[Rfam]
RNA sequence: GAGGUCUGAGGAAAAUAUCCAAGCAGUCCAGUUCUCACUGCAGACUGACCUCAACAUAGAA
Numbered sequence: 001g002a003g004g005u006c007u008g009a010g011g012a013a014a015a016u017a018u019c020c021a022a023g024c025a026g027u028c029c030a031g032u033u034c035u036c037a038c039u040g041c042a043g044a045c046u047g048a049c050c051u052c053a054a055c056a057u058a059g060a061a
Base pairs, nucleotide, nucleotide: 001052002051003050004049
Notes: A member of the RNA family "Small nucleolar RNA SNORD19" from Mesocricetus auratus, 61 nucleotides long. Pairs were carried over by alignment from the consensus structure. A reference for the family is Huttenhofer et al. (2001), "RNomics: an experimental approach that identifies 201 candidates for novel, small, non-messenger RNAs in mouse", EMBO J. The source organism's lineage runs through Eukaryota, Tetrapoda, Amniota, Euarchontoglires and Mesocricetus. The family is grouped with related families in Rfam's "SNORD19 clan".